Notes: Rfam assigns this 98-nucleotide sequence from Pan paniscus to the family "mir-544 microRNA precursor family".
RNA sequence: CUCACCUGAGAGUCUUGUUAAAAUGCAGAUUCUAAUUCAAUAAGACUAGCAUGAGGCCUGAGGCUCUGCAUUUCUAGCAAGCUCUGGGGUGAUGCCAU
Numbered sequence: 001c002u003c004a005c006c007u008g009a010g011a012g013u014c015u016u017g018u019u020a021a022a023a024u025g026c027a028g029a030u031u032c033u034a035a036u037u038c039a040a041u042a043a044g045a046c047u048a049g050c051a052u053g054a055g056g057c058c059u060g061a062g063g064c065u066c067u068g069c070a071u072u073u074c075u076a077g078c079a080a081g082c083u084c085u086g087g088g089g090u091g092a093u094g095c096c097a098u
Base pairs, nucleotide, nucleotide: 003091004090005089009085010084011083014081015080016079017078018077019076020075021073022072023071025069026068027067028066029065031063032062033061

A reference for the family is Chiang et al. (2010), "Mammalian microRNAs: experimental evaluation of novel and previously annotated genes", Genes Dev. The base pairs follow the family's consensus structure, which was predicted with RNAalifold.